[Rfam]
RNA sequence: AAUAGUGGGUAGCCUAAUUCAAAUUCGUCAUCUUUUGGAUUUGAAGCGGAGGAACCAAUGUUUGGGGCUAAUCUUUAUGAGAGACACCUUCCAGUCUUAGCCCGUCAGCUAACUCCGUCGGCAGUGGAAGGAACCGCC
Number, nucleotide and partner (000 for none) at each position: 001a000002a000003u000004a000005g000006u000007g000008g000009g000010u000011a000012g122013c121014c120015u000016a000017a000018u045019u044020c043021a042022a041023a040024u039025u038026c037027g036028u000029c000030a000031u000032c000033u000034u000035u000036u027037g026038g025039a024040u023041u022042u021043g020044a019045a018046g118047c117048g116049g115050a114051g113052g000053a000054a000055c000056c064057a063058a000059u000060g000061u000062u000063u057064g056065g103066g102067g101068c000069u000070a000071a000072u000073c079074u000075u000076u000077a000078u000079g073080a000081g000082a097083g096084a095085c094086a000087c000088c000089u000090u000091c000092c000093a000094g085095u084096c083097u082098u000099a000100g000101c067102c066103c065104g000105u000106c000107a000108g000109c000110u000111a000112a000113c051114u050115c049116c048117g047118u046119c000120g014121g013122c012123a000124g000125u000126g000127g000128a000129a000130g000131g000132a000133a000134c000135c000136g000137c000138c000
c-di-AMP riboswitch aptamer (ydaO/yuaA leader): a 138-nucleotide RNA sequence from Tolypothrix tenuis. Rfam's curators write: This family represents a conserved RNA structure found upstream of the ydaO and yuaA genes in Bacillus subtilis and related genes in other bacteria. The organism belongs to Tolypothrix tenuis, within Bacteria.